[Rfam]
RNA: mir-196 microRNA precursor family
RNA sequence: GUUGUGAUUUAGGUAGUUUCAUGUUGUUGGGCUUCAUUAACUAACUCUGCAACGUGAAACUGUCUUCAUUGCUCC
Numbered sequence: 001g002u003u004g005u006g007a008u009u010u011a012g013g014u015a016g017u018u019u020c021a022u023g024u025u026g027u028u029g030g031g032c033u034u035c036a037u038u039a040a041c042u043a044a045c046u047c048u049g050c051a052a053c054g055u056g057a058a059a060c061u062g063u064c065u066u067c068a069u070u071g072c073u074c075c
Base pairs, nucleotide, nucleotide: 004072005071006070007069008068011065012064013063014062015061016060017059018058019057022054023053024052025051026050027049029047030046031045